[Rfam]
RNA sequence: GUGACAGAAGAGAGUGAGCACCCAUGGUCUUCUUGCAAAUAAUCCGUGUGCAUAUGCCUGAAGCUAUGUGUGCUCACGCUCUAUCUGUCAC
Numbered sequence: 001g002u003g004a005c006a007g008a009a010g011a012g013a014g015u016g017a018g019c020a021c022c023c024a025u026g027g028u029c030u031u032c033u034u035g036c037a038a039a040u041a042a043u044c045c046g047u048g049u050g051c052a053u054a055u056g057c058c059u060g061a062a063g064c065u066a067u068g069u070g071u072g073c074u075c076a077c078g079c080u081c082u083a084u085c086u087g088u089c090a091c
Base pairs, nucleotide, nucleotide: 001091002090003089004088005087006086007085008084010081011080012079014077015076016075017074018073019072020071021070023068024067025066026065027064
RNA: mir-156 microRNA precursor family